[Rfam]
RNA sequence: GUUGAAAUUUAUUUCAUAACAAUUAAGUAAAGCAAAAGCUCCGAUUUAUUCAAAAUCGGAGCUUUUGCUUU
Numbered sequence: 001g002u003u004g005a006a007a008u009u010u011a012u013u014u015c016a017u018a019a020c021a022a023u024u025a026a027g028u029a030a031a032g033c034a035a036a037a038g039c040u041c042c043g044a045u046u047u048a049u050u051c052a053a054a055a056u057c058g059g060a061g062c063u064u065u066u067g068c069u070u071u
Stems, first nucleotide, its partner, number of pairs: 002026004009019004029071015